The family of this 93-nucleotide RNA sequence is "eL15-Euryarchaeota ribosomal protein leader". It is annotated as a cis-regulatory leader. The sequence is in the family's curated seed alignment.
[Rfam]
Nucleotides: 093
Stems, first nucleotide, its partner, number of pairs: 001061004063089003071083005
Number, partner (000 for none) and nucleotide at each position: 001061c002060u003059c004058g005000c006000c007000g008000c009000c010000g011000g012000a013000g014000c015000c016000g017000g018000g019000u020000c021000g022000c023000g024000a025000c026000g027000c028000g029000g030000a031000g032000g033000u034000c035000g036000c037000u038000c039000c040000g041000c042000u043000c044000g045000c046000u047000c048000c049000c050000g051000c052000c053000c054000g055000g056000g057000a058004c059003g060002a061001g062000a063089c064088g065087a066000a067000a068000u069000g070000u071083g072082g073081c074080c075079c076000u077000u078000c079075g080074g081073g082072c083071u084000g085000a086000a087065u088064c089063g090000c091000a092000a093000c